[Rfam]
RNA sequence: AGUGUAAUAAGGCUUUCAUGGGUGGUGGCUCACUCCCUUUUAUAGAAAGGGGGUGAUGCCUAUGACAGUUUUCGAGUCAUUAAUUGUGAUGAUUGCGUUUGCAACGCUUGUUGUUGCAAUUCUGUCAGAAAUGAAGUAACCACCCUGUCAGCCUAGCCAGCAUUUAGGGUGGAUUACUUCUCCUCAAUGUGAGCUGCCCCCUUGAAGGGCUAUUGCACACAAGGCCGAUUGGUGUGAAAGCACUAAUCGG
Numbered sequence: 001a002g003u004g005u006a007a008u009a010a011g012g013c014u015u016u017c018a019u020g021g022g023u024g025g026u027g028g029c030u031c032a033c034u035c036c037c038u039u040u041u042a043u044a045g046a047a048a049g050g051g052g053g054u055g056a057u058g059c060c061u062a063u064g065a066c067a068g069u070u071u072u073c074g075a076g077u078c079a080u081u082a083a084u085u086g087u088g089a090u091g092a093u094u095g096c097g098u099u100u101g102c103a104a105c106g107c108u109u110g111u112u113g114u115u116g117c118a119a120u121u122c123u124g125u126c127a128g129a130a131a132u133g134a135a136g137u138a139a140c141c142a143c144c145c146u147g148u149c150a151g152c153c154u155a156g157c158c159a160g161c162a163u164u165u166a167g168g169g170u171g172g173a174u175u176a177c178u179u180c181u182c183c184u185c186a187a188u189g190u191g192a193g194c195u196g197c198c199c200c201c202u203u204g205a206a207g208g209g210c211u212a213u214u215g216c217a218c219a220c221a222a223g224g225c226c227g228a229u230u231g232g233u234g235u236g237a238a239a240g241c242a243c244u245a246a247u248c249g250g
Stems, first nucleotide, its partner, number of pairs: 002218004007213001009211001011195005017156001020153002022149001024144004030056003034052005064126005077092003100118004166181003196210004225250010